[Rfam]
RNA sequence: AAGCAACACUCUGUGACAGAUUAUCAAAAUAGUCUGACGCAGUUUGAGCUUGCUAUAGCGAGAACGUCUAAUCUAUUCUGGCACUCUCUCCUCCACCAGAUGGCCCGAUACAUAGACUUAAACAUU
Numbered sequence: 001a002a003g004c005a006a007c008a009c010u011c012u013g014u015g016a017c018a019g020a021u022u023a024u025c026a027a028a029a030u031a032g033u034c035u036g037a038c039g040c041a042g043u044u045u046g047a048g049c050u051u052g053c054u055a056u057a058g059c060g061a062g063a064a065c066g067u068c069u070a071a072u073c074u075a076u077u078c079u080g081g082c083a084c085u086c087u088c089u090c091c092u093c094c095a096c097c098a099g100a101u102g103g104c105c106c107g108a109u110a111c112a113u114a115g116a117c118u119u120a121a122a123c124a125u126u
Stems, first nucleotide, its partner, number of pairs: 009048003012041004017036006064119001066117005074112001076110001079107003087100003